[Rfam]
RNA sequence: UAAACAUACCUCUAGGGUUCCGACUUAAACCCCAGCUUAAGUGUCUGGUCCGAGAGAGGUAAGCUGCUAAGGAUCGAAAACUAAAUAAAGUAGGGGUUUGGGGGCGAAGCCCCCAAGCAGGGGCAACACCCCUGCACCCCAAUUGUUCAUCUUAUUUAAUUCGUGAUCCUAAGGUCUUCCUGUAAAAGGAGAUGGCAGUUACACGGCGGGAUAAAAGCCCGGGAGAG
Numbered sequence: 001u002a003a004a005c006a007u008a009c010c011u012c013u014a015g016g017g018u019u020c021c022g023a024c025u026u027a028a029a030c031c032c033c034a035g036c037u038u039a040a041g042u043g044u045c046u047g048g049u050c051c052g053a054g055a056g057a058g059g060u061a062a063g064c065u066g067c068u069a070a071g072g073a074u075c076g077a078a079a080a081c082u083a084a085a086u087a088a089a090g091u092a093g094g095g096g097u098u099u100g101g102g103g104g105c106g107a108a109g110c111c112c113c114c115a116a117g118c119a120g121g122g123g124c125a126a127c128a129c130c131c132c133u134g135c136a137c138c139c140c141a142a143u144u145g146u147u148c149a150u151c152u153u154a155u156u157u158a159a160u161u162c163g164u165g166a167u168c169c170u171a172a173g174g175u176c177u178u179c180c181u182g183u184a185a186a187a188g189g190a191g192a193u194g195g196c197a198g199u200u201a202c203a204c205g206g207c208g209g210g211a212u213a214a215a216a217g218c219c220c221g222g223g224a225g226a227g
Base pairs, nucleotide, nucleotide: 007061008060009059010058011057012056015051016050020048021047022045023042024041025040026039027038028037062200063199064198065197066196067195068194069193202222204225208220209219210218
Shown here is a 227-nucleotide sequence from Leptolyngbya sp. 'hensonii', a member of the family "Guanidine-I riboswitch aptamer". This family represents a conserved RNA structure found upstream of the ykkC and yxkD genes in Bacillus subtilis and related genes in other bacteria. The function of this family is unclear although it has been suggested that it may function to switch on efflux pumps and detoxification systems in response to harmful environmental molecules. Pairs were carried over by alignment from the consensus structure. The literature on the family includes a 2004 paper in Proc Natl Acad Sci U S A by Barrick et al., "New RNA motifs suggest an expanded scope for riboswitches in bacterial genetic control". The organism belongs to Leptolyngbya, within Bacteria. It scores 77 bits against the family's covariance model.